This 67-nucleotide RNA from Gadus morhua belongs to the Rfam family "Small nucleolar RNA SNORD2". The family has 17 seed sequences and 1,116 matches in Rfam 15.1. The literature on the family includes a 2004 paper in Gene by Zhou et al., "Identification of a novel box C/D snoRNA from mouse nucleolar cDNA library". The match comes from Rfam's covariance-model search (48 bits).
[Rfam]
RNA sequence: GAGUGAUAUGAUUUUUCAUCUUUCGGGACUUACCCAAUAAUGGGGACAAACUUUUUGCUGAUCACUC
Numbered sequence: 001g002a003g004u005g006a007u008a009u010g011a012u013u014u015u016u017c018a019u020c021u022u023u024c025g026g027g028a029c030u031u032a033c034c035c036a037a038u039a040a041u042g043g044g045g046a047c048a049a050a051c052u053u054u055u056u057g058c059u060g061a062u063c064a065c066u067c
Stems, first nucleotide, its partner, number of pairs: 001067006